This 143-nucleotide sequence from Ruminococcus sp. AM42-11 belongs to the Rfam family "ZMP/ZTP riboswitch aptamer (pfl RNA motif)".
[Rfam]
RNA sequence: AAAGCUUCUGAAUACUGACGGAUCGUGGAGUUAACCACAGGGACUUCAGGAGCAGAUCAUGAGGAUUACUGUUUACAGCAGCUGCAUCAUAUUUUGCAGACAGCAUAGACCGUAAUUUCCAGCCGACCGUCUGGGCAGUAUUU
Numbered sequence: 001a002a003a004g005c006u007u008c009u010g011a012a013u014a015c016u017g018a019c020g021g022a023u024c025g026u027g028g029a030g031u032u033a034a035c036c037a038c039a040g041g042g043a044c045u046u047c048a049g050g051a052g053c054a055g056a057u058c059a060u061g062a063g064g065a066u067u068a069c070u071g072u073u074u075a076c077a078g079c080a081g082c083u084g085c086a087u088c089a090u091a092u093u094u095u096g097c098a099g100a101c102a103g104c105a106u107a108g109a110c111c112g113u114a115a116u117u118u119c120c121a122g123c124c125g126a127c128c129g130u131c132u133g134g135g136c137a138g139u140a141u142u143u
Stems, first nucleotide, its partner, number of pairs: 004053009015042002017131005025038004120138001122136003

Description
Rfam 15.1 lists 3,295 matches to the family in 2,545 species. Taxonomically the source falls in Ruminococcus (Bacteria, Bacillati, Bacillota, Oscillospiraceae).